RNA sequence: GGAAAGGGCGCAGGGCGGAUGCCUUGGCUCCGGGAGGCGACGAAGGACGCGGCCAGCGGCGAAAUGCCCCGGGGAGGAGCAGGCUUCCUGUGAUCCGGGGGUGUCCGAAUGGGGCAACCCGGCCGUCUGCGAGGGCGGUCACUCUUUCGAGAGAGCCAACCCGGGGAACUGAAACAUCUCAGUACCCGGAGGAAAGGAAAUCAACCGAGACUCCGCGAGUAGCGGCGAGCGAAAGCGGAAGAGCCCAAACCGUCAGGUGCGCCUGGCGGGGUUGUGGGACGGCCACACGGCAGCUGGAAGUUCAGCGGAAGCGUCUGGGAAGGCGCGGCGAAGAGGGUAAGACCCCCGUACGCGAAGGACUGAAGGCGCCGGCCGGAUCCCGAGUAGGGCGGGGCACGUGAAACCCCGUUCGAAGCAGGGGGGACCACCCUCCAAGGCUAAGUACUACCCGGAGACCGAUAGUGAACCAGUACCGUGAGGGAAAGGUGAAAAGCACCCCGCCGAGGGGAGUGAAACAGAUCCUGAAACCCUGCGUCCACAAG
Number, nucleotide and partner (000 for none) at each position: 001g000002g000003a000004a000005a000006g537007g536008g535009c534010g533011c532012a531013g530014g529015g528016c000017g000018g000019a000020u000021g522022c486023c485024u000025u000026g457027g456028c454029u453030c452031c451032g450033g449034g448035a446036g445037g156038c155039g000040a000041c000042g000043a000044a000045g106046g105047a104048c061049g060050c059051g000052g000053c000054c000055a000056g000057c000058g000059g050060c049061g048062a000063a000064a000065u000066g000067c100068c099069c098070c097071g096072g095073g094074g000075a000076g088077g087078a086079g000080c000081a000082g000083g000084c000085u000086u078087c077088c076089u000090g000091u000092g000093a000094u073095c072096c071097g070098g069099g068100g067101g000102u000103g000104u047105c046106c045107g000108a000109a000110u000111g120112g119113g118114g000115c000116a000117a000118c113119c112120c111121g140122g139123c138124c137125g136126u135127c134128u000129g000130c000131g000132a000133g000134g127135g126136c125137g124138g123139u122140c121141a000142c153143u152144c151145u000146u000147u000148c000149g000150a000151g144152a143153g142154a000155g038156c037157c000158a000159a000160c191161c189162c188163g187164g186165g185166g000167a000168a000169c000170u000171g178172a177173a000174a000175c000176a000177u172178c171179u000180c000181a000182g000183u000184a000185c165186c164187c163188g162189g161190a000191g160192g000193a000194a000195a000196g000197g000198a000199a000200a000201u208202c207203a000204a000205c000206c000207g202208a201209g000210a000211c442212u239213c238214c237215g236216c235217g000218a000219g000220u000221a000222g230223c229224g000225g000226c000227g000228a000229g223230c222231g000232a000233a000234a000235g216236c215237g214238g213239a212240a000241g000242a439243g438244c437245c436246c000247a000248a000249a000250c269251c268252g267253u266254c265255a264256g263257g000258u000259g000260c000261g000262c000263c256264u255265g254266g253267c252268g251269g250270g000271g000272u000273u000274g000275u000276g381277g380278g379279a000280c375281g374282g373283c372284c371285a000286c000287a000288c000289g000290g000291c368292a000293g367294c366295u365296g000297g000298a000299a361300g360301u359302u358303c357304a000305g353306c352307g351308g000309a000310a000311g326312c325313g324314u323315c322316u000317g000318g000319g000320a000321a000322g315323g314324c313325g312326c311327g000328g000329c333330g000331a000332a000333g329334a000335g347336g346337g345338u000339a000340a000341g000342a000343c000344c000345c337346c336347c335348g000349u000350a000351c307352g306353c305354g000355a000356a000357g303358g302359a301360c300361u299362g000363a000364a000365g295366g294367c293368g291369c000370c000371g284372g283373c282374c281375g280376g000377a000378u000379c278380c277381c276382g000383a000384g000385u000386a000387g411388g410389g409390c408391g407392g406393g405394g404395c000396a000397c000398g000399u000400g000401a000402a000403a000404c394405c393406c392407c391408g390409u389410u388411c387412g000413a000414a000415g000416c000417a000418g433419g432420g431421g430422g429423g000424a000425c000426c000427a000428c000429c422430c421431u420432c419433c418434a000435a000436g245437g244438c243439u242440a000441a000442g211443u000444a000445c036446u035447a000448c034449c033450c032451g031452g030453a029454g028455a000456c027457c026458g000459a000460u000461a000462g000463u000464g000465a000466a000467c000468c000469a000470g000471u000472a000473c480474c479475g000476u000477g000478a000479g474480g473481g000482a000483a000484a000485g023486g022487u000488g000489a000490a000491a000492a000493g000494c000495a000496c508497c507498c506499c505500g000501c000502c000503g000504a000505g499506g498507g497508g496509a000510g000511u000512g000513a000514a000515a000516c000517a000518g000519a000520u000521c000522c021523u000524g000525a000526a000527a000528c015529c014530c013531u012532g011533c010534g009535u008536c007537c006538a000539c000540a000541a000542g000
RNA: Bacterial large subunit ribosomal RNA, nucleotides 9 to 550
Organism: uncultured bacterium HF0770_45N15